[Rfam]
RNA sequence: AUCCGUCCGCGCGACUGGCGCCCUGGGAUGGAGUUCACCAUCGGGAAACGCGGAAUCGCACCCGCCGCGCGCCUGGGCAUGAAUG
Number, nucleotide and partner (000 for none) at each position: 001a000002u000003c000004c000005g000006u054007c053008c052009g051010c050011g049012c000013g000014a000015c045016u044017g073018g072019c071020g070021c069022c000023c000024u000025g000026g000027g000028a041029u040030g039031g038032a000033g000034u000035u000036c000037a000038c031039c030040a029041u028042c000043g000044g016045g015046a000047a000048a000049c011050g010051c009052g008053g007054a006055a000056u000057c000058g000059c000060a000061c000062c000063c000064g078065c077066c076067g000068c000069g021070c020071g019072c018073c017074u000075g000076g066077g065078c064079a000080u000081g000082a000083a000084u000085g000